Lysine riboswitch aptamer: a 179-nucleotide RNA from Clostridium sp. FS41. Pairs were carried over by alignment from the consensus structure, which is taken from published work. A search with the family's covariance model found it, with a score of 104 bits.

RNA sequence: UCAUAGAGUAGAGGUUGCGUUGAUCAAGAGUAAUCAAGCCCGAUGUGGCAGGCACAGGGGAGGGUUUGAUGAAAGGGAAAGACGCCGAAGAAGGAGAACGCCUGAAUCAGUUAUCCUUCUGGGCACAUGGUGAACAACCAUGUGACUGUCAUCCGGGUGGAUGGAGAGCUACCAAAGAA
Numbered sequence: 001u002c003a004u005a006g007a008g009u010a011g012a013g014g015u016u017g018c019g020u021u022g023a024u025c026a027a028g029a030g031u032a033a034u035c036a037a038g039c040c041c042g043a044u045g046u047g048g049c050a051g052g053c054a055c056a057g058g059g060g061a062g063g064g065u066u067u068g069a070u071g072a073a074a075g076g077g078a079a080a081g082a083c084g085c086c087g088a089a090g091a092a093g094g095a096g097a098a099c100g101c102c103u104g105a106a107u108c109a110g111u112u113a114u115c116c117u118u119c120u121g122g123g124c125a126c127a128u129g130g131u132g133a134a135c136a137a138c139c140a141u142g143u144g145a146c147u148g149u150c151a152u153c154c155g156g157g158u159g160g161a162u163g164g165a166g167a168g169c170u171a172c173c174a175a176a177g178a179a
Stems, first nucleotide, its partner, number of pairs: 008172004017085005024078002036067006089120007097112003121147002124144008149164006

Riboswitches are metabolite binding domains within certain messenger RNAs that serve as precision sensors for their corresponding targets. Allosteric rearrangement of mRNA structure is mediated by ligand binding, and this results in modulation of gene expression.